RNA sequence: CCGCCCCGCCUCGUGAUCGUCUUCUCACCCUUCACGCGGGCGGGCGGCCGAAGGAGGAGGACCCCCCGCGAGGUCGUGUCUCGCGGGGGUCUUCC
Numbered sequence: 001c002c003g004c005c006c007c008g009c010c011u012c013g014u015g016a017u018c019g020u021c022u023u024c025u026c027a028c029c030c031u032u033c034a035c036g037c038g039g040g041c042g043g044g045c046g047g048c049c050g051a052a053g054g055a056g057g058a059g060g061a062c063c064c065c066c067c068g069c070g071a072g073g074u075c076g077u078g079u080c081u082c083g084c085g086g087g088g089g090u091c092u093u094c095c
Stems, first nucleotide, its partner, number of pairs: 001047003005044007013035004019029001056095008065087008

A member of the RNA family "sodF sRNA" from Streptomyces spiralis, 95 nucleotides long. Its family is annotated with mRNA binding, negative regulation of translation and regulation of mRNA stability in the Gene Ontology. The pairing is the family consensus, mapped onto this sequence. Taxonomically the source falls in Streptomyces (Bacteria, Bacillati, Actinomycetota, Kitasatosporales). By type it is a small RNA. The literature on the family includes a 2014 paper in Nucleic Acids Res by Kim et al., "Inverse regulation of Fe- and Ni-containing SOD genes by a Fur family regulator Nur through small RNA processed from 3'UTR of the sodF mRNA".